[Rfam]
RNA sequence: CUCUCUCAGUGUUCACAGUGGACCUUGAUUUCAAAACAGUCAAUUAAGGCACGCGGUGAAUGCCAAGAGAG
Numbered sequence: 001c002u003c004u005c006u007c008a009g010u011g012u013u014c015a016c017a018g019u020g021g022a023c024c025u026u027g028a029u030u031u032c033a034a035a036a037c038a039g040u041c042a043a044u045u046a047a048g049g050c051a052c053g054c055g056g057u058g059a060a061u062g063c064c065a066a067g068a069g070a071g
Base pairs, nucleotide, nucleotide: 003069004068005067006066009063010062011061012060013059014058015057016056018054019053020052023049024048025047026046027045028044029043030042
RNA: mir-124 microRNA precursor family